[Rfam]
RNA sequence: AGAAGUUUGCCACCAUAGCAGAAGUGCUCACAGCAUGGCCUGUCAGAUUUCAGUGAAAUCUGUGAAUUUGGCU
Numbered sequence: 001a002g003a004a005g006u007u008u009g010c011c012a013c014c015a016u017a018g019c020a021g022a023a024g025u026g027c028u029c030a031c032a033g034c035a036u037g038g039c040c041u042g043u044c045a046g047a048u049u050u051c052a053g054u055g056a057a058a059u060c061u062g063u064g065a066a067u068u069u070g071g072c073u
Stems, first nucleotide, its partner, number of pairs: 009040001013038002017073003021069003024036003044062007
RNA: Mammalian CPEB3 ribozyme